[Rfam]
RNA: Plant signal recognition particle RNA
RNA sequence: GUCGAGCCACUUAACAAUGGCUUGUAACCCAAGUGGGGGCUUUAAGGUGGUUGGAGGUUGGUUCAUCGUAUCUUGUCGGAACUCUUAAGAGGACUACUUGCUUGCCCAUUCCAAGAAGGGAGUUGGGCCUCGCAUUCUAGACGAAAGUCCAAAGUGCGAUGCCUUUAGAUUGGAGGAAACCGCGUGAGGUUGGCCUUACAGAGCAGCGUCACCUCCUGCUCUCGUCGGUGGACGGAUAACGUGCAAGUUCUUGAGAGCCCAAUUACCUGGUACGAAGUUCAAACAAGACAACCAACUUU
Numbered sequence: 001g002u003c004g005a006g007c008c009a010c011u012u013a014a015c016a017a018u019g020g021c022u023u024g025u026a027a028c029c030c031a032a033g034u035g036g037g038g039g040c041u042u043u044a045a046g047g048u049g050g051u052u053g054g055a056g057g058u059u060g061g062u063u064c065a066u067c068g069u070a071u072c073u074u075g076u077c078g079g080a081a082c083u084c085u086u087a088a089g090a091g092g093a094c095u096a097c098u099u100g101c102u103u104g105c106c107c108a109u110u111c112c113a114a115g116a117a118g119g120g121a122g123u124u125g126g127g128c129c130u131c132g133c134a135u136u137c138u139a140g141a142c143g144a145a146a147g148u149c150c151a152a153a154g155u156g157c158g159a160u161g162c163c164u165u166u167a168g169a170u171u172g173g174a175g176g177a178a179a180c181c182g183c184g185u186g187a188g189g190u191u192g193g194c195c196u197u198a199c200a201g202a203g204c205a206g207c208g209u210c211a212c213c214u215c216c217u218g219c220u221c222u223c224g225u226c227g228g229u230g231g232a233c234g235g236a237u238a239a240c241g242u243g244c245a246a247g248u249u250c251u252u253g254a255g256a257g258c259c260c261a262a263u264u265a266c267c268u269g270g271u272a273c274g275a276a277g278u279u280c281a282a283a284c285a286a287g288a289c290a291a292c293c294a295a296c297u298u299u
Base pairs, nucleotide, nucleotide: 001040002039003038004023005022006021007020008019009018011016028037029036030035044298045297046296048294049293050292051291052290053289057284058282059281060280061278062277063276066274068273069272070271071270072269075266076265078260079259082257083256084255085254087252088251089250091249092248097247098246099245100244101243103241104240106235107234110232111231112230113229115226116225118223119222120221121220122219123218125164126163127162128161130159131158132157133156134155135154136153138151140149141148142147172216173215174214175213176212182209183208184207185206190201191200192199